[Rfam]
RNA: FuFi-1 RNA
Organism: Veillonella criceti
RNA sequence: UGCGGAAAGGCGUCUCGUAAGUUUUGGCUGUCCAAACAGCCCUAAGUGAUGCGACUCAUGAAGAAAUAGUUGCUGAUAACAUCUAUGCGUUUAAAUUUAGUCGACGGAGGUCAAAAGUUUUGUCGAGAAGCUAUACUUCGAAGCUCGACACAAACUUGCUAAGUUUAAACGAUGCAAUGAGUUAUAGGUAAAAAAGUUGGAUAAAAAACUCUCGUAUUAUCAGUGCGAGAGUUUUUUA
Numbered sequence: 001u002g003c004g005g006a007a008a009g010g011c012g013u014c015u016c017g018u019a020a021g022u023u024u025u026g027g028c029u030g031u032c033c034a035a036a037c038a039g040c041c042c043u044a045a046g047u048g049a050u051g052c053g054a055c056u057c058a059u060g061a062a063g064a065a066a067u068a069g070u071u072g073c074u075g076a077u078a079a080c081a082u083c084u085a086u087g088c089g090u091u092u093a094a095a096u097u098u099a100g101u102c103g104a105c106g107g108a109g110g111u112c113a114a115a116a117g118u119u120u121u122g123u124c125g126a127g128a129a130g131c132u133a134u135a136c137u138u139c140g141a142a143g144c145u146c147g148a149c150a151c152a153a154a155c156u157u158g159c160u161a162a163g164u165u166u167a168a169a170c171g172a173u174g175c176a177a178u179g180a181g182u183u184a185u186a187g188g189u190a191a192a193a194a195a196g197u198u199g200g201a202u203a204a205a206a207a208a209c210u211c212u213c214g215u216a217u218u219a220u221c222a223g224u225g226c227g228a229g230a231g232u233u234u235u236u237u238a
Stems, first nucleotide, its partner, number of pairs: 001053004007047001026041005032200003054182006066086004071081002073223007088171014204236013